[Rfam]
Rfam assigns this 137-nucleotide RNA sequence from Trichonephila inaurata to the family "Wolbachia sRNA 46". On this family, see Mayoral et al., Proc Natl Acad Sci U S A 2014: "Wolbachia small noncoding RNAs and their role in cross-kingdom communications". By type it is a small RNA. The organism belongs to Trichonephila inaurata, within Eukaryota. The match comes from Rfam's covariance-model search (67 bits).
RNA sequence: UGAUUUUCAUCCAAGACGGUGUCAUCCCAGUGCCCAGACACUGGGAUCUAGAAGACUUAAUUUCAACUAAGUGGCUGCAUAAUAAAGGCUGGAUUCCAGCGUCGCGCGCUGGAAUGACAUCUUUCCUGGUGGACUCA
Numbered sequence: 001u002g003a004u005u006u007u008c009a010u011c012c013a014a015g016a017c018g019g020u021g022u023c024a025u026c027c028c029a030g031u032g033c034c035c036a037g038a039c040a041c042u043g044g045g046a047u048c049u050a051g052a053a054g055a056c057u058u059a060a061u062u063u064c065a066a067c068u069a070a071g072u073g074g075c076u077g078c079a080u081a082a083u084a085a086a087g088g089c090u091g092g093a094u095u096c097c098a099g100c101g102u103c104g105c106g107c108g109c110u111g112g113a114a115u116g117a118c119a120u121c122u123u124u125c126c127u128g129g130u131g132g133a134c135u136c137a
Stems, first nucleotide, its partner, number of pairs: 011132003020119006027112007035104001037103003041099011